[Rfam]
RNA sequence: AAGGCAGGGAUUGUGUGUAUCGGCGUUGUGCUACAAUCAGUGCACUCUGUUCCGAAAGAGUUCCUUGCGAAAUCAACUUCUGGGGAAGGUGGGCAGUUGUAUUUCAUCUUCAUCGUUGAAAUCUCAACAAUCAUCUUCCGCACAUUU
Dot-bracket structure: ...(((((((....((((((...................))))))................))))))).............(.(((((((((...((((.........................))))..))))))))).)......
RNA: small nucleolar RNA snoR135
Organism: Morus notabilis